RNA sequence: GGCUGAAACUCGAACUGUCACCUUUAUGGAUGGCGUUUCCGAUAAACCUGCCUAUCGGUAGACAAGGUCGGAAUAGGGUUUCAGUUUUUA
Numbered sequence: 001g002g003c004u005g006a007a008a009c010u011c012g013a014a015c016u017g018u019c020a021c022c023u024u025u026a027u028g029g030a031u032g033g034c035g036u037u038u039c040c041g042a043u044a045a046a047c048c049u050g051c052c053u054a055u056c057g058g059u060a061g062a063c064a065a066g067g068u069c070g071g072a073a074u075a076g077g078g079u080u081u082c083a084g085u086u087u088u089u090a
Stems, first nucleotide, its partner, number of pairs: 001086011016035005022029001037073007
RNA: DUF3800-IX RNA